[Rfam]
RNA sequence: UUGAACCCUAAUGCAGCUGCUGGCCACUGCUCAAGAUUAGACAUAUGACUCUUGUGCGUGUGACAGCGGCUAUUAUGGGGAUUCAUUAACACAAC
Numbered sequence: 001u002u003g004a005a006c007c008c009u010a011a012u013g014c015a016g017c018u019g020c021u022g023g024c025c026a027c028u029g030c031u032c033a034a035g036a037u038u039a040g041a042c043a044u045a046u047g048a049c050u051c052u053u054g055u056g057c058g059u060g061u062g063a064c065a066g067c068g069g070c071u072a073u074u075a076u077g078g079g080g081a082u083u084c085a086u087u088a089a090c091a092c093a094a095c
Stems, first nucleotide, its partner, number of pairs: 006080005015071008024062001025060002028058003032054002035051002
RNA: mir-210 microRNA precursor family
Organism: Aphidius gifuensis